RNA sequence: GCUGCCAGUGAUGUUUUUUACAUACCAUGCUAAUGUUGAUGUUUGCUGAUGAAAAACUCUCUUUUACUGAGGUAGCC
Numbered sequence: 001g002c003u004g005c006c007a008g009u010g011a012u013g014u015u016u017u018u019u020a021c022a023u024a025c026c027a028u029g030c031u032a033a034u035g036u037u038g039a040u041g042u043u044u045g046c047u048g049a050u051g052a053a054a055a056a057c058u059c060u061c062u063u064u065u066a067c068u069g070a071g072g073u074a075g076c077c
Stems, first nucleotide, its partner, number of pairs: 001076005
The record is a 77-nucleotide RNA from Rhynchospora breviuscula, which matches "Small nucleolar RNA snoR53Y" in Rfam. The family's consensus secondary structure was predicted with WAR. For this family Rfam cites "Multiple snoRNA gene clusters from Arabidopsis" (Brown et al., RNA, 2001). The family is grouped with related families in Rfam's "snoR53 clan". Its family is annotated with RNA processing and nucleolus in the Gene Ontology. The organism belongs to Rhynchospora, within Eukaryota. It is annotated as a C/D-box small nucleolar RNA.